[Rfam]
RNA sequence: UAGGCAUGCUGGGGUUCCGCCAGCGGCGCCCGGAUUUCAAGUGGGGGAAAACAACUUUUCCAGCCAUUUACCGACACCGUCCGGAACACAA
Number, nucleotide and partner (000 for none) at each position: 001u000002a000003g000004g000005c000006a000007u000008g000009c000010u000011g000012g089013g000014g087015u086016u085017c084018c083019g082020c000021c000022a000023g000024c079025g078026g077027c000028g000029c000030c000031c073032g072033g071034a000035u000036u000037u000038c000039a000040a000041g000042u000043g000044g000045g000046g000047g000048a000049a000050a000051a000052c000053a000054a000055c000056u000057u000058u000059u000060c000061c000062a000063g000064c000065c000066a000067u000068u000069u000070a000071c033072c032073g031074a000075c000076a000077c026078c025079g024080u000081c000082c019083g018084g017085a016086a015087c014088a000089c012090a000091a000